A member of the RNA family "Group II catalytic intron D1-D4-3" from Cnuella takakiae, 166 nucleotides long.
A search with the family's covariance model found it, with a score of 80 bits.
Rfam 15.1 lists 4,274 matches to the family in 1,585 species.

[Rfam]
RNA sequence: UAAGAUGCGAUUUCUGCACUGAAGUAAGCGGGAUUGAGAAUGCCUGUACCGACGAACAGGAACUGCAUAGAAGGCCUGCAAAAAACGGAUGAGUAAGCACAUCGAUACGAAGUCCUGAAUGACUAGUUUUUUGCAGGUAGAUGCAGCGGGCAUAAUAGCCGCCGGC
Numbered sequence: 001u002a003a004g005a006u007g008c009g010a011u012u013u014c015u016g017c018a019c020u021g022a023a024g025u026a027a028g029c030g031g032g033a034u035u036g037a038g039a040a041u042g043c044c045u046g047u048a049c050c051g052a053c054g055a056a057c058a059g060g061a062a063c064u065g066c067a068u069a070g071a072a073g074g075c076c077u078g079c080a081a082a083a084a085a086c087g088g089a090u091g092a093g094u095a096a097g098c099a100c101a102u103c104g105a106u107a108c109g110a111a112g113u114c115c116u117g118a119a120u121g122a123c124u125a126g127u128u129u130u131u132u133g134c135a136g137g138u139a140g141a142u143g144c145a146g147c148g149g150g151c152a153u154a155a156u157a158g159c160c161g162c163c164g165g166c
Stems, first nucleotide, its partner, number of pairs: 001016002004013002036166001041161002044158003049149003063146006074138003078134007087115004093108003